[Rfam]
RNA sequence: GGUUGCUGAGGUCGGAACAGGCAGCCGACGCCGUUGCUUAGGCAAGUUGGAGAUGGAGAUUGUCACCUCCCUCAACU
Numbered sequence: 001g002g003u004u005g006c007u008g009a010g011g012u013c014g015g016a017a018c019a020g021g022c023a024g025c026c027g028a029c030g031c032c033g034u035u036g037c038u039u040a041g042g043c044a045a046g047u048u049g050g051a052g053a054u055g056g057a058g059a060u061u062g063u064c065a066c067c068u069c070c071c072u073c074a075a076c077u
Stems, first nucleotide, its partner, number of pairs: 001077005008071001011029005020064004031050001034045004055070004

Shown here is a 77-nucleotide sequence from Paenibacillus spiritus, a member of the family "skipping-rope RNA". The base pairs follow the family's consensus structure, which is taken from published work. The source organism's lineage runs through Bacteria, Bacillota, Bacilli, Caryophanales and Paenibacillus. It is annotated as a small RNA. A search with the family's covariance model found it, with a score of 39 bits.